[Rfam]
RNA sequence: UGCCUAGCCCUCAUAGCUGGUCUAUGAGAUAUGGCAGAAAAAACCUACCACAGGAUAGAGAGCUCGUCGUCAGAGCACCUGUGGUAGGUCAUAUCCCGAAGGGGUAUGGGUGGUCGCAAGACCAUC
Numbered sequence: 001u002g003c004c005u006a007g008c009c010c011u012c013a014u015a016g017c018u019g020g021u022c023u024a025u026g027a028g029a030u031a032u033g034g035c036a037g038a039a040a041a042a043a044c045c046u047a048c049c050a051c052a053g054g055a056u057a058g059a060g061a062g063c064u065c066g067u068c069g070u071c072a073g074a075g076c077a078c079c080u081g082u083g084g085u086a087g088g089u090c091a092u093a094u095c096c097c098g099a100a101g102g103g104g105u106a107u108g109g110g111u112g113g114u115c116g117c118a119a120g121a122c123c124a125u126c
Stems, first nucleotide, its partner, number of pairs: 001036004010028006044088011062076003090108008109126006
Shown here is a 126-nucleotide sequence, a member of the family "LOOT RNA". By type it is a small RNA. The family's consensus secondary structure is taken from published work.